[Rfam]
RNA sequence: UCAGGCGGCUGGGCGAUCGCUGGCAGGGUAACUUGCUGGAGGAAAGUCCGGGCUCCACGUAGGCAAGGCGGCGGAUAACGUCCGCCCGGGGAAGCGACCGAAAGGAAGCGUAACCCGAGGGAUAGCGCCACAGAAAGCAAACCGCCCGGGACUUGUCCCGGGUAAGGGUGAAAGGGUGGGGUAAGAGCCCACCGCGUUCCUGGUGACAGGGAUGGCAAGGUAAGCCCCGCCUGGAGCAAGACCGAAUAGGGAUGGACGUCCGCAAGGGCAGGCACGCCUUCGUGCUCCAUCCGGGUUGGUCGCGCGAGGCGGUCCGCAAGGAUCGUCCCAGAGGAAUGGUCGCCCAUGGGUCGCAAGACCCGGGACAGAACCCGGCUUACAGGCCGCCUGAUCGA
Numbered sequence: 001u002c003a004g005g006c007g008g009c010u011g012g013g014c015g016a017u018c019g020c021u022g023g024c025a026g027g028g029u030a031a032c033u034u035g036c037u038g039g040a041g042g043a044a045a046g047u048c049c050g051g052g053c054u055c056c057a058c059g060u061a062g063g064c065a066a067g068g069c070g071g072c073g074g075a076u077a078a079c080g081u082c083c084g085c086c087c088g089g090g091g092a093a094g095c096g097a098c099c100g101a102a103a104g105g106a107a108g109c110g111u112a113a114c115c116c117g118a119g120g121g122a123u124a125g126c127g128c129c130a131c132a133g134a135a136a137g138c139a140a141a142c143c144g145c146c147c148g149g150g151a152c153u154u155g156u157c158c159c160g161g162g163u164a165a166g167g168g169u170g171a172a173a174g175g176g177u178g179g180g181g182u183a184a185g186a187g188c189c190c191a192c193c194g195c196g197u198u199c200c201u202g203g204u205g206a207c208a209g210g211g212a213u214g215g216c217a218a219g220g221u222a223a224g225c226c227c228c229g230c231c232u233g234g235a236g237c238a239a240g241a242c243c244g245a246a247u248a249g250g251g252a253u254g255g256a257c258g259u260c261c262g263c264a265a266g267g268g269c270a271g272g273c274a275c276g277c278c279u280u281c282g283u284g285c286u287c288c289a290u291c292c293g294g295g296u297u298g299g300u301c302g303c304g305c306g307a308g309g310c311g312g313u314c315c316g317c318a319a320g321g322a323u324c325g326u327c328c329c330a331g332a333g334g335a336a337u338g339g340u341c342g343c344c345c346a347u348g349g350g351u352c353g354c355a356a357g358a359c360c361c362g363g364g365a366c367a368g369a370a371c372c373c374g375g376c377u378u379a380c381a382g383g384c385c386g387c388c389u390g391a392u393c394g395a
Stems, first nucleotide, its partner, number of pairs: 001391010011380001012344007020039008044378003048375005053236004061280003066232005071085005086119001087117004120227002125225002127221003142167002144163008175193006194216001195214008240301004250292006272285005308327008
Bacterial RNase P class A: a 395-nucleotide RNA sequence from an Alphaproteobacteria bacterium. A search with the family's covariance model found it, with a score of 303 bits. Pairs were carried over by alignment from the consensus structure, which is taken from published work.